RNA sequence: CGCUUCGCUCCGGGGAGCCCUGAUGUGCAGACAAAGCUUGUCGCACCGGGCUGAGAUGUGGUGGAAGCCAUGGACCCGCUGAACUUGAUCCGGUUGAUACCGGCGUAAGAAGAGCCUGCUCCCGCCUC
Numbered sequence: 001c002g003c004u005u006c007g008c009u010c011c012g013g014g015g016a017g018c019c020c021u022g023a024u025g026u027g028c029a030g031a032c033a034a035a036g037c038u039u040g041u042c043g044c045a046c047c048g049g050g051c052u053g054a055g056a057u058g059u060g061g062u063g064g065a066a067g068c069c070a071u072g073g074a075c076c077c078g079c080u081g082a083a084c085u086u087g088a089u090c091c092g093g094u095u096g097a098u099a100c101c102g103g104c105g106u107a108a109g110a111a112g113a114g115c116c117u118g119c120u121c122c123c124g125c126c127u128c
Base pairs, nucleotide, nucleotide: 007115008114009113010112011078012077013076014075017051018050019049020048058071059070060069061068062067084109085108086107087106090103091102092101093100
This 128-nucleotide RNA sequence from Paucibacter sp. KBW04 belongs to the Rfam family "TPP riboswitch aptamer (THI element)". Rfam describes the family as follows. Vitamin B(1) in its active form thiamin pyrophosphate (TPP) is an essential coenzyme that is synthesised by coupling of pyrimidine and thiazole moieties in bacteria. It scores 64 bits against the family's covariance model. The family's consensus secondary structure is taken from published work.